[Rfam]
RNA: Plastid-psbl-rps4 3UTR RNA
RNA sequence: CGGAAAGAGAGAGAUUCGAACCCUCGGUACGAUUAACUCGUACAACGGAUUAU
Number, nucleotide and partner (000 for none) at each position: 001c000002g000003g000004a000005a000006a000007g000008a000009g025010a024011g023012a000013g021014a000015u000016u000017c000018g000019a000020a000021c013022c000023c011024u010025c009026g000027g043028u042029a041030c040031g039032a038033u000034u000035a000036a000037c000038u032039c031040g030041u029042a028043c027044a000045a000046c000047g000048g000049a000050u000051u000052a000053u000